[Rfam]
RNA sequence: CCAUGGGGGUGGCUGGGGGCUGGUGUGGCCAUGGGGGUGGCUGG
Numbered sequence: 001c002c003a004u005g006g007g008g009g010u011g012g013c014u015g016g017g018g019g020c021u022g023g024u025g026u027g028g029c030c031a032u033g034g035g036g037g038u039g040g041c042u043g044g
Stems, first nucleotide, its partner, number of pairs: 001034006
Rfam assigns this 44-nucleotide RNA sequence from Chordeiles acutipennis to the family "Prion pseudoknot". Rfam 15.1 lists 421 matches to the family in 241 species. By type it is a cis-regulatory element. On this family, see Barrette et al., Nucleic Acids Res 2001: "Pseudoknots in prion protein mRNAs confirmed by comparative sequence analysis and pattern searching". This family represents a predicted pseudoknot structure found in prion protein mRNA. It has been suggested that the family has a possible effect in prion protein translation. The source organism's lineage runs through Eukaryota, Chordata, Gnathostomata, Tetrapoda and Chordeiles. The family's consensus secondary structure is taken from published work.